RtT RNA: a 123-nucleotide RNA from Limnobaculum parvum. Gene Ontology term of the family: cellular response to amino acid starvation. This family represents a bacterial cis-regulatory element known as RtT RNA. The exact function of RtT is unknown although it is thought that it may be involved in changing the cellular response in relation to amino acid starvation. For this family Rfam cites "A novel RNA product of the tyrT operon of Escherichia coli" (Bosl and Kersten, Nucleic Acids Res, 1991). The organism belongs to Limnobaculum, within Bacteria.
Nucleotides: 123
Base pairs, nucleotide, nucleotide: 001111002110004108006106029086030085036083037082038081039080043053044052060076061075062074063073064072065071
Number, partner (000 for none) and nucleotide at each position: 001111c002110a003000c004108g005000a006106u007000g008000a009000g010000a011000a012000a013000u014000c015000g016000u017000g018000g019000g020000g021000a022000u023000g024000a025000a026000g027000a028000a029086c030085c031000a032000a033000a034000g035000g036083u037082u038081c039080g040000a041000g042000u043053c044052g045000a046000a047000c048000g049000c050000a051000g052044u053043g054000a055000g056000a057000u058000a059000a060076c061075g062074u063073u064072g065071c066000c067000a068000g069000c070000g071065g072064c073063a074062a075061c076060g077000g078000c079000c080039c081038g082037a083036a084000g085030g086029g087000c088000g089000a090000g091000g092000c093000c094000a095000u096000a097000g098000g099000c100000c101000g102000a103000a104000u105000a106006a107000u108004c109000c110002u111001g112000c113000a114000c115000g116000a117000c118000c119000c120000a121000c122000c123000a